[Rfam]
RNA: LOOT RNA
RNA sequence: GAUCUAGAGCCACCGCAAGGAAGGUAUGGUCAUCAAAACUACGUCAAUGUUAAUCCGAUCAUCGGUAACUAUUGACGUAGUCGCAACUCGAAAGGGUUGUGGGGCGAAAGCUC
Numbered sequence: 001g002a003u004c005u006a007g008a009g010c011c012a013c014c015g016c017a018a019g020g021a022a023g024g025u026a027u028g029g030u031c032a033u034c035a036a037a038a039c040u041a042c043g044u045c046a047a048u049g050u051u052a053a054u055c056c057g058a059u060c061a062u063c064g065g066u067a068a069c070u071a072u073u074g075a076c077g078u079a080g081u082c083g084c085a086a087c088u089c090g091a092a093a094g095g096g097u098u099g100u101g102g103g104g105c106g107a108a109a110g111c112u113c
Stems, first nucleotide, its partner, number of pairs: 001031004010023001013020002039080011051067001055065003082101008102113004